[Rfam]
RNA sequence: UGGCGCCUGAACAGUGACCUGGACACGGGGGAAGAAGUGAGGAAGAAGGCACUAAAGUCGGCCGAAAGCGAAAGUGGAAGAAAAAUUCCUCUGGACUUCAUGGGAACUUGCCGCAUUGCAACCAGAGGUAAGUAAUAGUGUCUGACUAUGGGACAAGAAUUAAGCCAGCAUCAGAUUUAUGUAGGGCAAAUAAAAGAGGCUUUAAAAGCACGAGGAGUAAAGGUUAAAAGUAAUGAUUUGUUUAAAUUUUUUGAUUUUGUAAAAGAUACCUGCCCUU
Dot-bracket structure: .....(((.....(((.......)))..)))......(.......).......................................(.(.((....(....(((.......)))....)......)).).).....(.((.((((....)))))).)....((((((...............................))).)))......((((((((..((((((.......))))))......))))))))........((.(.(....).).))